Shown here is a 104-nucleotide sequence from Cytobacillus kochii, a member of the family "Purine riboswitch aptamer".
The base pairs follow the family's consensus structure, which is taken from published work.
The organism belongs to Cytobacillus, within Bacteria.
RNA sequence: AUUAAAUAUUAAAAACAUCUUCGUAUAAUGUUGGGAAUAUGGCCCAAAAGUUUCUACCAAGUUACCGUAAAUGACUUGACUACUUGAUGUGUGUGCGUAACAAA
Numbered sequence: 001a002u003u004a005a006a007u008a009u010u011a012a013a014a015a016c017a018u019c020u021u022c023g024u025a026u027a028a029u030g031u032u033g034g035g036a037a038u039a040u041g042g043c044c045c046a047a048a049a050g051u052u053u054c055u056a057c058c059a060a061g062u063u064a065c066c067g068u069a070a071a072u073g074a075c076u077u078g079a080c081u082a083c084u085u086g087a088u089g090u091g092u093g094u095g096c097g098u099a100a101c102a103a104a
Stems, first nucleotide, its partner, number of pairs: 019089001021087002023083003029049001031047005058078007